[Rfam]
RNA sequence: GAAGAGCUCUGCACCGAAAGGUUAGCGACCCACGGUGACCCCGAGUCAUGCGUCGUCGCUCGUGAGGGCGUCGGCGAAGCGUUGACAGGGGCACGUGCAGGCCGGGCUAUUGAGCCGCGUAAUCAUGGAGUUCGGGGCGCCGACGCUGUCUACGGAAGCGGAAGGCAACACCGUCAGUGGCGCUAUCGCGAGCCGCUGGUGGGUCCCGCGCGGUCAGAGACCC
Numbered sequence: 001g002a003a004g005a006g007c008u009c010u011g012c013a014c015c016g017a018a019a020g021g022u023u024a025g026c027g028a029c030c031c032a033c034g035g036u037g038a039c040c041c042c043g044a045g046u047c048a049u050g051c052g053u054c055g056u057c058g059c060u061c062g063u064g065a066g067g068g069c070g071u072c073g074g075c076g077a078a079g080c081g082u083u084g085a086c087a088g089g090g091g092c093a094c095g096u097g098c099a100g101g102c103c104g105g106g107c108u109a110u111u112g113a114g115c116c117g118c119g120u121a122a123u124c125a126u127g128g129a130g131u132u133c134g135g136g137g138c139g140c141c142g143a144c145g146c147u148g149u150c151u152a153c154g155g156a157a158g159c160g161g162a163a164g165g166c167a168a169c170a171c172c173g174u175c176a177g178u179g180g181c182g183c184u185a186u187c188g189c190g191a192g193c194c195g196c197u198g199g200u201g202g203g204u205c206c207c208g209c210g211c212g213g214u215c216a217g218a219g220a221c222c223c
Stems, first nucleotide, its partner, number of pairs: 012037005020030003023191001025189002039091004045086004049081002051076005057070005111217001112215001114214006133208006139166003144160004171202011